A member of the RNA family "tRNA" from Buchnera aphidicola, 74 nucleotides long. About the family: Transfer RNA (tRNA) molecules are approximately 80 nucleotides in length. Rfam classes the family as a transfer RNA. The match comes from Rfam's covariance-model search (69 bits). Clan: tRNA clan.

RNA sequence: GCGCUUGUAGCUCAGUUGGAUAGAGCGCUACCCUCCGAAGGUAGAGGCCUCAGGUUCGAAUCCUGUCAAGCGCA
Numbered sequence: 001g002c003g004c005u006u007g008u009a010g011c012u013c014a015g016u017u018g019g020a021u022a023g024a025g026c027g028c029u030a031c032c033c034u035c036c037g038a039a040g041g042u043a044g045a046g047g048c049c050u051c052a053g054g055u056u057c058g059a060a061u062c063c064u065g066u067c068a069a070g071c072g073c074a
Stems, first nucleotide, its partner, number of pairs: 001073007010026004028044005051065004